A member of the RNA family "ZMP/ZTP riboswitch aptamer (pfl RNA motif)" from Pectinatus cerevisiiphilus, 84 nucleotides long.
RNA sequence: UAUGUAAUGCAGGACUGACGGAUUGUGUGGAAAUGACCACAUGGACUGCAUUAUAGUGAUAAGCCGACCGUCUGGGCAGGAGAA
Number, nucleotide and partner (000 for none) at each position: 001u000002a000003u055004g054005u053006a052007a051008u050009g049010c048011a047012g046013g000014a000015c043016u000017g072018a071019c070020g069021g068022a000023u000024u000025g000026u000027g040028u039029g038030g037031a000032a000033a000034u000035g000036a000037c030038c029039a028040c027041a000042u000043g015044g000045a000046c012047u011048g010049c009050a008051u007052u006053a005054u004055a003056g000057u000058g000059a000060u000061a000062a000063g077064c076065c075066g000067a000068c021069c020070g019071u018072c017073u000074g000075g065076g064077c063078a000079g000080g000081a000082g000083a000084a000
The match comes from Rfam's covariance-model search (63 bits).